[Rfam]
RNA sequence: ACAGUCUGAAAAUCACUUGGGGUCUCCUGUGGCCCCUGGUGCAAUAACUGUGCCGAUAGCAGAGCGACCAUUAAACUCAUUGCCCACGGAAAAGUGUGGAGAGUGAUACCCAUGUUCCUAUAAUC
Numbered sequence: 001a002c003a004g005u006c007u008g009a010a011a012a013u014c015a016c017u018u019g020g021g022g023u024c025u026c027c028u029g030u031g032g033c034c035c036c037u038g039g040u041g042c043a044a045u046a047a048c049u050g051u052g053c054c055g056a057u058a059g060c061a062g063a064g065c066g067a068c069c070a071u072u073a074a075a076c077u078c079a080u081u082g083c084c085c086a087c088g089g090a091a092a093a094g095u096g097u098g099g100a101g102a103g104u105g106a107u108a109c110c111c112a113u114g115u116u117c118c119u120a121u122a123a124u125c
Base pairs, nucleotide, nucleotide: 006050008048010045014041015040016039021034022033023032024031066118067116069114070113071112077106078105079104080103081102085098086097087096
Small nucleolar RNA ACA64: a 125-nucleotide sequence from Bucco capensis. The organism belongs to Bucco, within Eukaryota. The literature on the family includes a 2006 paper in RNA by Schattner et al., "A computational screen for mammalian pseudouridylation guide H/ACA RNAs".